[Rfam]
RNA sequence: GAAACGUCCACCCCGCACGGCACCACUGGUUCCGGUCAUACGGGGACCGCCCCUCCGCAAGGAGAGGCCGCC
Numbered sequence: 001g002a003a004a005c006g007u008c009c010a011c012c013c014c015g016c017a018c019g020g021c022a023c024c025a026c027u028g029g030u031u032c033c034g035g036u037c038a039u040a041c042g043g044g045g046a047c048c049g050c051c052c053c054u055c056c057g058c059a060a061g062g063a064g065a066g067g068c069c070g071c072c
Stems, first nucleotide, its partner, number of pairs: 011045005018034003022030001049068003053064004